[Rfam]
A member of the RNA family "Pseudomonas sRNA P27" from Pseudomonas fluvialis, 185 nucleotides long. For this family Rfam cites "Identification of 17 Pseudomonas aeruginosa sRNAs and prediction of sRNA-encoding genes in 10 diverse pathogens using the bioinformatic tool sRNAPredict2" (Livny et al., Nucleic Acids Res, 2006). Pairs were carried over by alignment from the consensus structure, which was predicted with WAR.

RNA sequence: CGGGUUUACUCCUGGAUGUUACCGUUUCGCCAAGCCAGGCUUGGCGUCGUUUUGGUGUCUGAUUCGGUAAGGAAUCGGGAGCACCAUCUGCGUAGGCAAUGGUUUAAGACUUACGUCACCUACGGUCUUGGAUAGCCCCCGCCAGGCAGGGACCCCAAUAGUUGGGGUGAAGGCUAGCCUUCACC
Numbered sequence: 001c002g003g004g005u006u007u008a009c010u011c012c013u014g015g016a017u018g019u020u021a022c023c024g025u026u027u028c029g030c031c032a033a034g035c036c037a038g039g040c041u042u043g044g045c046g047u048c049g050u051u052u053u054g055g056u057g058u059c060u061g062a063u064u065c066g067g068u069a070a071g072g073a074a075u076c077g078g079g080a081g082c083a084c085c086a087u088c089u090g091c092g093u094a095g096g097c098a099a100u101g102g103u104u105u106a107a108g109a110c111u112u113a114c115g116u117c118a119c120c121u122a123c124g125g126u127c128u129u130g131g132a133u134a135g136c137c138c139c140c141g142c143c144a145g146g147c148a149g150g151g152a153c154c155c156c157a158a159u160a161g162u163u164g165g166g167g168u169g170a171a172g173g174c175u176a177g178c179c180u181u182c183a184c185c
Stems, first nucleotide, its partner, number of pairs: 002155006011146004023049002028046008053086006059078007090142003095137003102133010177184001